RNA: U2 spliceosomal RNA
Organism: Vicugna pacos
RNA sequence: AUCUCUUCUCGGCCUUUUGGCUAAGAUCAGGUGUAGUAUCUUCUUAUCAGUUUACUAUCUGAUACAUCCUCUAUCCGAGGACAAUACAGUAAAUGGCUUUUGGGAGCAGGGAGUUGGAAUAGGAGCUUGUUCCGUCCAUUCCACGCAUUGACCUGGUACUGCAGUACUUUCAGGAAUGGAGCACCCCUC
Numbered sequence: 001a002u003c004u005c006u007u008c009u010c011g012g013c014c015u016u017u018u019g020g021c022u023a024a025g026a027u028c029a030g031g032u033g034u035a036g037u038a039u040c041u042u043c044u045u046a047u048c049a050g051u052u053u054a055c056u057a058u059c060u061g062a063u064a065c066a067u068c069c070u071c072u073a074u075c076c077g078a079g080g081a082c083a084a085u086a087c088a089g090u091a092a093a094u095g096g097c098u099u100u101u102g103g104g105a106g107c108a109g110g111g112a113g114u115u116g117g118a119a120u121a122g123g124a125g126c127u128u129g130u131u132c133c134g135u136c137c138a139u140u141c142c143a144c145g146c147a148u149u150g151a152c153c154u155g156g157u158a159c160u161g162c163a164g165u166a167c168u169u170u171c172a173g174g175a176a177u178g179g180a181g182c183a184c185c186c187c188u189c
Stems, first nucleotide, its partner, number of pairs: 007026003011022004045064006067081005110142005116136002122133004145182002148179003152174005